[Rfam]
RNA sequence: UUGAAGCUCUAUCUACUGUUGGAUAAGGUUUUGUUCUUUUGGUUUUAGUGUCUAUUAUUCGUUGAAGUUGAAGGAGCAAUACCCACCCUCUUGAUAGAAUAAGAACUUGGGUAUUGCUCCUUC
Numbered sequence: 001u002u003g004a005a006g007c008u009c010u011a012u013c014u015a016c017u018g019u020u021g022g023a024u025a026a027g028g029u030u031u032u033g034u035u036c037u038u039u040u041g042g043u044u045u046u047a048g049u050g051u052c053u054a055u056u057a058u059u060c061g062u063u064g065a066a067g068u069u070g071a072a073g074g075a076g077c078a079a080u081a082c083c084c085a086c087c088c089u090c091u092u093g094a095u096a097g098a099a100u101a102a103g104a105a106c107u108u109g110g111g112u113a114u115u116g117c118u119c120c121u122u123c
Base pairs, nucleotide, nucleotide: 008023009022010021011020070123071122072121073120074119075118076117077116078115079114080113081112082111084109085108089104090103091102092101
The family of this 123-nucleotide sequence from Kingdonia uniflora is "Plastid-psbA-1 3UTR RNA". The base pairs follow the family's consensus structure, which was predicted with LocARNA.